[Rfam]
RNA sequence: CAUAGUAGCAGCGUUAGUCGGGUGAGAAUCCCGACGGCCUCAAGAGUAAGGGUUCCUCGGCACUGCUUAUCAGCCGAGGGUUAGCCGGCCCUAAGUCCCGUCGCAACUCGAGCGGGACAAACAGGGAAACUGGUUAAUAUUCCAGUGCCGUCGUCCAGUGAAAACCGACGCUUUCGGAUCGACCAAGCCGGGCCUUCGCCCGGUCGAAUCGCCGAAAUCCGUGGAAGCCGUCAUGGCACGAAGCGGAUGAAUAGCGAGAUAGCGCAAGUUGGUUCAACCGAGAGCCCGUGAAAAGGUGAGGACGACGUCCGUACCGAGAUCCGACACAGGUACUCUGGCGGCGAAAGCCAAGGCCUGU
Numbered sequence: 001c002a003u004a005g006u007a008g009c010a011g012c013g014u015u016a017g018u019c020g021g022g023u024g025a026g027a028a029u030c031c032c033g034a035c036g037g038c039c040u041c042a043a044g045a046g047u048a049a050g051g052g053u054u055c056c057u058c059g060g061c062a063c064u065g066c067u068u069a070u071c072a073g074c075c076g077a078g079g080g081u082u083a084g085c086c087g088g089c090c091c092u093a094a095g096u097c098c099c100g101u102c103g104c105a106a107c108u109c110g111a112g113c114g115g116g117a118c119a120a121a122c123a124g125g126g127a128a129a130c131u132g133g134u135u136a137a138u139a140u141u142c143c144a145g146u147g148c149c150g151u152c153g154u155c156c157a158g159u160g161a162a163a164a165c166c167g168a169c170g171c172u173u174u175c176g177g178a179u180c181g182a183c184c185a186a187g188c189c190g191g192g193c194c195u196u197c198g199c200c201c202g203g204u205c206g207a208a209u210c211g212c213c214g215a216a217a218u219c220c221g222u223g224g225a226a227g228c229c230g231u232c233a234u235g236g237c238a239c240g241a242a243g244c245g246g247a248u249g250a251a252u253a254g255c256g257a258g259a260u261a262g263c264g265c266a267a268g269u270u271g272g273u274u275c276a277a278c279c280g281a282g283a284g285c286c287c288g289u290g291a292a293a294a295g296g297u298g299a300g301g302a303c304g305a306c307g308u309c310c311g312u313a314c315c316g317a318g319a320u321c322c323g324a325c326a327c328a329g330g331u332a333c334u335c336u337g338g339c340g341g342c343g344a345a346a347g348c349c350a351a352g353g354c355c356u357g358u
Stems, first nucleotide, its partner, number of pairs: 017035006036355004044335004050315002055079006064072002086311003090125002095118006101111003129146005149307008164297003170285008181274005187204005209257004218247005227237003263268001321330002336350004
Background: Shown here is a 358-nucleotide part of an RNA from Salinarchaeum sp. Harcht-Bsk1, a member of the family "Archaeal large subunit ribosomal RNA".